[Rfam]
RNA sequence: AACCGCACUAUCAAUGAAUGGAUUCACCCGUGAUAUGAUGUGGUUGUUCCACUUAGGAUGAGGACGUGGCAUCCUAUUAUCAACCAUUGCACGAAAUUAAUAGGAUGCCACGUUCUCAUCCUAGGUGGAACAACCAUAAUAGGAUGCCACGUCUUCGUCCUAGGUGGAACAACUACAUCAUAUCACGGGUGAAUCCAUUCAUUGAUAGUGUGGUU
Numbered sequence: 001a002a003c004c005g006c007a008c009u010a011u012c013a014a015u016g017a018a019u020g021g022a023u024u025c026a027c028c029c030g031u032g033a034u035a036u037g038a039u040g041u042g043g044u045u046g047u048u049c050c051a052c053u054u055a056g057g058a059u060g061a062g063g064a065c066g067u068g069g070c071a072u073c074c075u076a077u078u079a080u081c082a083a084c085c086a087u088u089g090c091a092c093g094a095a096a097u098u099a100a101u102a103g104g105a106u107g108c109c110a111c112g113u114u115c116u117c118a119u120c121c122u123a124g125g126u127g128g129a130a131c132a133a134c135c136a137u138a139a140u141a142g143g144a145u146g147c148c149a150c151g152u153c154u155u156c157g158u159c160c161u162a163g164g165u166g167g168a169a170c171a172a173c174u175a176c177a178u179c180a181u182a183u184c185a186c187g188g189g190u191g192a193a194u195c196c197a198u199u200c201a202u203u204g205a206u207a208g209u210g211u212g213g214u215u
Stems, first nucleotide, its partner, number of pairs: 001215007009207007017199003021195008030186004035181005041175008051165002054162002057159002063153003069147011087136001
RNA: MIR807 microRNA precursor family